Y RNA-like: a 126-nucleotide RNA sequence from Persicirhabdus sediminis. NCBI's taxonomy places the organism under Bacteria, Pseudomonadati, Verrucomicrobiota, Verrucomicrobiaceae, Persicirhabdus.
[Rfam]
RNA sequence: CGGGUGAAUGCCUGAGAAAUUACAUCUUUAAUGCACAGGUCGCUGGUUCGAGUCCAGCUCGUCAUUUAUGGCGGUAGCUCAGUUGGUAGAGCCGUGAAACAUUUCUCACUUCCUUGUCACCCACCU
Numbered sequence: 001c002g003g004g005u006g007a008a009u010g011c012c013u014g015a016g017a018a019a020u021u022a023c024a025u026c027u028u029u030a031a032u033g034c035a036c037a038g039g040u041c042g043c044u045g046g047u048u049c050g051a052g053u054c055c056a057g058c059u060c061g062u063c064a065u066u067u068a069u070g071g072c073g074g075u076a077g078c079u080c081a082g083u084u085g086g087u088a089g090a091g092c093c094g095u096g097a098a099a100c101a102u103u104u105c106u107c108a109c110u111u112c113c114u115u116g117u118c119a120c121c122c123a124c125c126u
Base pairs, nucleotide, nucleotide: 002122003121004120005119006118007117013108014107015106016105017104018103019102023096035095036094042058043057044056045055046054049086059074060073061072062071063070064069077092078091079090080089
Rfam classes the family as a small RNA. About the family: In Deinococcus radiodurans Rsr is tethered via Y RNA to the exoribonuclease PNPase and channels single-stranded RNA into the PNPase cavity. On this family, see Chen et al., Cell 2013: "An RNA degradation machine sculpted by Ro autoantigen and noncoding RNA".